RNA sequence: CCCGCCCGGGUCCGUGGUUGCGCCGGACCGGCUCCCGCGAGGAGACCGGCCCGGCUAGCCGAUGCCAGCCGCAGGCUAAACGGUCCACGUAAGACGACUUUUCGUCGAUCGAUCACGGUGCGGCUUAGAGGUAAGUCCUGCCUUCCCGAGGAGCCAGAUGUUCCUCGCCAGAAGAGAAGGGCAGUAGUGGCAAAGAGCUGCGAGACCCUCAGCAGGCGGAUGUGGGGACGAAGACCAGGUCGGCCGGGUGGG
Dot-bracket structure: (((((((((..((((((((..........................................((([.(((((((.]........((...(...(.((((.....)))).)...)..[)))))))))...........(((((((((.........................))))...((((.....(((((.....)))))....))))..)))))....)))......]..)))))...))))))))))))
Numbered sequence: 001c002c003c004g005c006c007c008g009g010g011u012c013c014g015u016g017g018u019u020g021c022g023c024c025g026g027a028c029c030g031g032c033u034c035c036c037g038c039g040a041g042g043a044g045a046c047c048g049g050c051c052c053g054g055c056u057a058g059c060c061g062a063u064g065c066c067a068g069c070c071g072c073a074g075g076c077u078a079a080a081c082g083g084u085c086c087a088c089g090u091a092a093g094a095c096g097a098c099u100u101u102u103c104g105u106c107g108a109u110c111g112a113u114c115a116c117g118g119u120g121c122g123g124c125u126u127a128g129a130g131g132u133a134a135g136u137c138c139u140g141c142c143u144u145c146c147c148g149a150g151g152a153g154c155c156a157g158a159u160g161u162u163c164c165u166c167g168c169c170a171g172a173a174g175a176g177a178a179g180g181g182c183a184g185u186a187g188u189g190g191c192a193a194a195g196a197g198c199u200g201c202g203a204g205a206c207c208c209u210c211a212g213c214a215g216g217c218g219g220a221u222g223u224g225g226g227g228a229c230g231a232a233g234a235c236c237a238g239g240u241c242g243g244c245c246g247g248g249u250g251g252g
Stems, first nucleotide, its partner, number of pairs: 001252009012243003015237005062223003065075001067125007084118002089113001093109001095107004116230001137216005142174004178209004187201005